The family of this 89-nucleotide sequence from Cynara cardunculus is "Small nucleolar RNA R16". By type it is a C/D-box small nucleolar RNA. The organism belongs to Cynara cardunculus subsp. cardunculus, within Eukaryota. Its family is annotated with nucleolus and RNA processing in the Gene Ontology.
Nucleotides: 089
Base pairs, nucleotide, nucleotide: 003087004086005085006084007083
Number, partner (000 for none) and nucleotide at each position: 001000g002000a003087a004086g005085g006084c007083a008000a009000a010000u011000g012000a013000u014000g015000c016000u017000a018000c019000a020000c021000a022000a023000a024000a025000a026000u027000c028000u029000u030000a031000u032000a033000c034000u035000a036000c037000a038000c039000a040000c041000u042000g043000a044000a045000u046000a047000u048000u049000u050000u051000g052000g053000u054000g055000u056000u057000g058000a059000a060000a061000a062000c063000a064000a065000u066000u067000c068000u069000c070000a071000u072000u073000u074000a075000c076000u077000g078000u079000c080000u081000g082000a083007u084006g085005c086004u087003u088000u089000g